[Rfam]
RNA sequence: GGCCUCCUUGUGCUUACCACAGGCUGUGUUUUUGCACUGACUGUAUAGAAAGGGGAGGCAGAUAAAGUACCCCAUAUACACCUCAGCCCAGGCCUUGUGCCUGGUUUGUAUUGUGAAUGGGGCAACAUGG
Number, nucleotide and partner (000 for none) at each position: 001g000002g059003c058004c057005u056006c055007c054008u053009u000010g000011u000012g000013c000014u000015u000016a000017c000018c000019a000020c043021a042022g041023g000024c000025u000026g037027u036028g035029u034030u000031u000032u000033u000034g029035c028036a027037c026038u000039g000040a000041c022042u021043g020044u000045a000046u000047a000048g000049a000050a000051a000052g000053g008054g007055g006056a005057g004058g003059c002060a000061g000062a000063u000064a000065a000066a000067g000068u000069a000070c122071c121072c120073c119074a118075u117076a000077u000078a000079c000080a000081c000082c000083u000084c108085a107086g106087c000088c104089c103090a102091g101092g100093c099094c000095u000096u000097g000098u000099g093100c092101c091102u090103g089104g088105u000106u086107u085108g084109u000110a000111u000112u000113g000114u000115g000116a000117a075118u074119g073120g072121g071122g070123c000124a000125a000126c000127a000128u000129g000130g000